The record is a 119-nucleotide RNA from Paenibacillus sp. HGF7, which matches "Bacillus sRNA ncr1015" in Rfam.
RNA sequence: GUAUAAGAUGUAGUUACUAUGCCUUUAAUUAAAAAAAGAGUCGUAAACCGAUUAUAUCAUCGUGUUUGUUUAUAUGCAAUAUUAAAGAACCUGGUAAAGCUACCCAGGUUCUUUUUUGA
Numbered sequence: 001g002u003a004u005a006a007g008a009u010g011u012a013g014u015u016a017c018u019a020u021g022c023c024u025u026u027a028a029u030u031a032a033a034a035a036a037a038g039a040g041u042c043g044u045a046a047a048c049c050g051a052u053u054a055u056a057u058c059a060u061c062g063u064g065u066u067u068g069u070u071u072a073u074a075u076g077c078a079a080u081a082u083u084a085a086a087g088a089a090c091c092u093g094g095u096a097a098a099g100c101u102a103c104c105c106a107g108g109u110u111c112u113u114u115u116u117u118g119a
Stems, first nucleotide, its partner, number of pairs: 033073001035071003039065001042062002084114011
Notes
Pairs were carried over by alignment from the consensus structure, which is taken from published work. On this family, see Irnov et al., Nucleic Acids Res 2010: "Identification of regulatory RNAs in Bacillus subtilis". The sequence is in the family's curated seed alignment.